About this RNA
This 288-nucleotide RNA from Bacillus subtilis belongs to the Rfam family "BsrG". The source organism's lineage runs through Bacteria, Bacillati, Bacilli, Bacillus and Bacillus subtilis subsp. subtilis. It is annotated as a small RNA. Rfam's curators write: bsrE, bsrG and bsrH pair through intermolecular interactions with antisense sRNAs. They form type I toxin/antitoxin system that includes an mRNA encoding for a short, toxic peptide (bsrE, bsrG and bsrH) and an antitoxin that is comprised of an antisense RNA. bsrG encodes a 39-amino-acid toxin, and the 180 nucleotide antisense sRNA called SR4 acts as the antitoxin (they overlap by 123 nucleotides). SR4 interaction with the 3'UTR of bsrG RNA promotes bsrG degradation and inhibits its translation. BsrG interferes with cell envelope biosynthesis, causes membrane invaginations and delocalisation of the cell wall synthesis and initiates autolysis. bsrE RNA encodes 30 amino-acid toxin peptide. Its antitoxin gene, SR5 overlaps by 112 nucleotides at the 3' end of bsrE. SR5 also overlaps bsrG from nucleotide 163 to 52 (Rfam overlap check). The antitoxin SR5 promotes bsrE degradation but unlike SR4 it does not directly inhibits toxin mRNA translation. It is one of the family's seed sequences. The family's consensus secondary structure was predicted with WAR. Gene Ontology terms of the family: autolysis and toxin activity.
RNA sequence: UACAUAAAGUUUGCUCACUCAAGGGAGUCUUGCUCAUCCCCUAUGAAAGGGGUGGGAAAAUGACUGUUUACGAAUCAUUAAUGAUAAUGAUCAAUUUUGGCGGAUUGAUAUUAAAUACCGUCUUGUUGAUCUUCAAUAUAAUGAUGAUUGUAACGUCAAGCCAAAAGAAAAAAUAGACCUUCCCUUGAGUUUGGACACCUGAAGGGUUAGGCCUACGCAGAUUUGACAACGAGCAAGCCCUUUGAUGGGCAGCUUUUGUACAGAGCCAGGGUGCUACCAACACCCUGG
Dot-bracket structure: ((((.((..(((((((.((((((((.((((...(((.(((((.....))))))))......(.(.((.......(((..........)))........((((................))))..)).).)............................................))))...)))))))).........(((................)))..........))))))((((......)))))..)).)))).....((((((((.(...).))))))))